[Rfam]
RNA sequence: GCACCCAUGCAGGGGUACGGAAGAUGUCCACGGCACGCCGCGGGCCUUCCGUUGAGAGGGCGGUGCCGCCCAACCCUUCGAACCUGUCAGCUAACACUGUCGUAGGGAGCAUGCCCACCAGCAUA
Numbered sequence: 001g002c003a004c005c006c007a008u009g010c011a012g013g014g015g016u017a018c019g020g021a022a023g024a025u026g027u028c029c030a031c032g033g034c035a036c037g038c039c040g041c042g043g044g045c046c047u048u049c050c051g052u053u054g055a056g057a058g059g060g061c062g063g064u065g066c067c068g069c070c071c072a073a074c075c076c077u078u079c080g081a082a083c084c085u086g087u088c089a090g091c092u093a094a095c096a097c098u099g100u101c102g103u104a105g106g107g108a109g110c111a112u113g114c115c116c117a118c119c120a121g122c123a124u125a
Base pairs, nucleotide, nucleotide: 006113007112008111009110010109011077012076013075014074017052018051019050020049021048022047023046059070060069061068062067083106084105085104086103088099089098090097